[Rfam]
RNA sequence: CAAAAGCUGGAGCUUAUACAUUGCCCGCAGCUAAAAAGUAAGCCUAUUUUUAACACCUCAUUUCGUUGCAUUCUGCGUAGUACAUCGUCCUGUAGUUUGAAAUUUCGUUUGUUUUUAUUGCUAAUAAUGCCUCGCGGAGGCAGUUUUAUAAUUCAUUACAGGAUAUCUAAUAUGUCUACUACUACUGGUACAGUAAAAUGGUUCAACGAGUCUAAAGGCUUCGGUUUUAUCGAACAAGAAUCUGGCCCUGAUGUUUUCGCACACUUCAGUGCAAUCACUGGUUCAGGCUUCAAAACAUUAGCUGAAGGCCAAAAAGUUGAGUUCACUGUAACUCAAGGUCAAAAAGGCCCUCAAGCUGAGAACAUUGUUGCCCUAUAAGGCUAAUGAUGUUGAAAAAGCAAACCUUCGGGUUUGCUUUUUUUU
Number, nucleotide and partner (000 for none) at each position: 001c000002a000003a000004a015005a014006g013007c012008u000009g000010g000011a000012g007013c006014u005015u004016a000017u000018a000019c000020a000021u237022u236023g000024c000025c000026c232027g231028c000029a000030g000031c000032u000033a000034a000035a000036a000037a228038g227039u000040a000041a226042g225043c224044c223045u000046a000047u218048u217049u216050u215051u000052a000053a000054c000055a000056c000057c000058u000059c000060a211061u210062u000063u000064c208065g207066u206067u205068g204069c000070a202071u201072u200073c000074u000075g000076c174077g173078u172079a171080g000081u169082a168083c000084a000085u000086c000087g000088u000089c162090c161091u160092g159093u158094a157095g156096u000097u000098u117099g000100a116101a115102a114103u000104u000105u000106c000107g000108u000109u000110u000111g000112u000113u000114u102115u101116u100117a098118u000119u000120g000121c000122u000123a000124a000125u000126a000127a000128u000129g141130c140131c139132u138133c137134g000135c000136g000137g133138a132139g131140g130141c129142a000143g000144u000145u000146u000147u000148a000149u000150a000151a000152u000153u000154c000155a000156u095157u094158a093159c092160a091161g090162g089163a000164u000165a000166u000167c000168u082169a081170a000171u079172a078173u077174g076175u000176c188177u187178a186179c000180u184181a000182c000183u000184a180185c000186u178187g177188g176189u000190a000191c000192a000193g000194u000195a000196a000197a000198a000199u000200g072201g071202u070203u000204c068205a067206a066207c065208g064209a000210g061211u060212c000213u000214a000215a050216a049217g048218g047219c000220u000221u000222c000223g044224g043225u042226u041227u038228u037229a000230u000231c027232g026233a000234a000235c000236a022237a021238g000239a000240a000241u330242c000243u328244g327245g326246c000247c000248c000249u000250g258251a257252u000253g000254u000255u000256u000257u251258c250259g000260c000261a000262c000263a317264c316265u315266u314267c000268a000269g000270u311271g310272c308273a000274a000275u000276c301277a000278c000279u000280g000281g296282u295283u294284c000285a000286g000287g000288c000289u000290u000291c000292a000293a000294a283295a282296c281297a000298u000299u000300a000301g276302c000303u000304g000305a000306a000307g000308g272309c000310c271311a270312a000313a000314a266315a265316g264317u263318u000319g000320a000321g000322u000323u000324c000325a000326c245327u244328g243329u000330a241331a000332c000333u000334c000335a000336a351337g350338g349339u000340c000341a000342a000343a000344a000345a000346g000347g000348c000349c338350c337351u336352c000353a000354a374355g373356c000357u370358g369359a368360g000361a000362a000363c000364a000365u000366u000367g000368u359369u358370g357371c000372c000373c355374u354375a000376u000377a000378a000379g388380g000381c386382u000383a000384a000385u000386g381387a000388u379389g000390u000391u000392g000393a420394a419395a418396a417397a416398g415399c414400a413401a412402a411403c410404c409405u000406u000407c000408g000409g404410g403411u402412u401413u400414g399415c398416u397417u396418u395419u394420u393421u000422u000423u000
Shown here is a 423-nucleotide sequence from Reinekea thalattae, a member of the family "cspA thermoregulator". The match comes from Rfam's covariance-model search (95 bits). Its family is annotated with response to temperature stimulus and regulation of translation in the Gene Ontology. NCBI's taxonomy places the organism under Bacteria, Pseudomonadota, Gammaproteobacteria, Oceanospirillales, Reinekea.